[Rfam]
The record is a 79-nucleotide RNA from Carlito syrichta, which matches "Small nucleolar RNA SNORD45" in Rfam. The organism belongs to Carlito, within Eukaryota. The family's RNA type in Rfam is C/D-box small nucleolar RNA. The literature on the family includes a 2002 paper in Mol Cell Biol by Galardi et al., "Purified box C/D snoRNPs are able to reproduce site-specific 2'-O-methylation of target RNA in vitro".
RNA sequence: GGUUGCUGCUGAACUGACAUAUAUUCUGAAUCUAAAGUUAAUUAUUACUAUUUUAGCUCUAGAAUUACUCUGAGACCUG
Numbered sequence: 001g002g003u004u005g006c007u008g009c010u011g012a013a014c015u016g017a018c019a020u021a022u023a024u025u026c027u028g029a030a031u032c033u034a035a036a037g038u039u040a041a042u043u044a045u046u047a048c049u050a051u052u053u054u055a056g057c058u059c060u061a062g063a064a065u066u067a068c069u070c071u072g073a074g075a076c077c078u079g
Stems, first nucleotide, its partner, number of pairs: 001077004